Shown here is a 96-nucleotide sequence from Nocardioides marinus, a member of the family "Glycine riboswitch aptamer". The family is grouped with related families in Rfam's "Glycine riboswitch clan". The source organism's lineage runs through Bacteria, Bacillati, Actinomycetes, Propionibacteriales and Nocardioides. Its family is annotated with glycine biosynthetic process in the Gene Ontology.
RNA sequence: ACAUCCCGCACGGGAGAGUCCCUCUGCCACCGCAGGGGGCGCCGAAGGGGCAAUUCCUCCCCGGAACCUCUCAGGCCACCGGACCGCGUGGGCCAG
Numbered sequence: 001a002c003a004u005c006c007c008g009c010a011c012g013g014g015a016g017a018g019u020c021c022c023u024c025u026g027c028c029a030c031c032g033c034a035g036g037g038g039g040c041g042c043c044g045a046a047g048g049g050g051c052a053a054u055u056c057c058u059c060c061c062c063g064g065a066a067c068c069u070c071u072c073a074g075g076c077c078a079c080c081g082g083a084c085c086g087c088g089u090g091g092g093c094c095a096g
Base pairs, nucleotide, nucleotide: 006091007090008089009088011086012085013084020039021038022037023036024035025034041076042075043074044072045071048070049069050068054064055063